[Rfam]
RNA sequence: CUUCUGCUAUGAUGAUCUUUUUGAAUCAAAUUCACAUGUCAGACUUCAGAGAUUAUUUUAGUAUAAUCUAUGAGAAUAAAUAUUCAUACAAACUGAGCAGAAG
Numbered sequence: 001c002u003u004c005u006g007c008u009a010u011g012a013u014g015a016u017c018u019u020u021u022u023g024a025a026u027c028a029a030a031u032u033c034a035c036a037u038g039u040c041a042g043a044c045u046u047c048a049g050a051g052a053u054u055a056u057u058u059u060a061g062u063a064u065a066a067u068c069u070a071u072g073a074g075a076a077u078a079a080a081u082a083u084u085c086a087u088a089c090a091a092a093c094u095g096a097g098c099a100g101a102a103g
Base pairs, nucleotide, nucleotide: 001103002102003101004100005099006098007097051068052067053066054065055064056063

The record is a 103-nucleotide RNA from Capsella rubella, which matches "Small nucleolar RNA R64/Z200 family" in Rfam. Taxonomically the source falls in Capsella (Eukaryota, Spermatophyta, Mesangiospermae, Camelineae). A search with the family's covariance model found it, with a score of 84 bits. Its family is annotated with nucleolus and RNA processing in the Gene Ontology. By type it is a C/D-box small nucleolar RNA.